[Rfam]
RNA sequence: UACGACAACCGCGGGAGCCUGGCGUACCGGGCUGAGAGUGUGGCUGCUGCGGCCGCUGACCGCUCGAACCUGACCGGGUCAUGCCGGCGUAGGGAGCUUGUUCUUAUGGAGA
Numbered sequence: 001u002a003c004g005a006c007a008a009c010c011g012c013g014g015g016a017g018c019c020u021g022g023c024g025u026a027c028c029g030g031g032c033u034g035a036g037a038g039u040g041u042g043g044c045u046g047c048u049g050c051g052g053c054c055g056c057u058g059a060c061c062g063c064u065c066g067a068a069c070c071u072g073a074c075c076g077g078g079u080c081a082u083g084c085c086g087g088c089g090u091a092g093g094g095a096g097c098u099u100g101u102u103c104u105u106a107u108g109g110a111g112a
Stems, first nucleotide, its partner, number of pairs: 006100003010096001011063004016057001017032005040056007069093004074087004
RNA: TPP riboswitch aptamer (THI element)
Organism: Sphaerisporangium album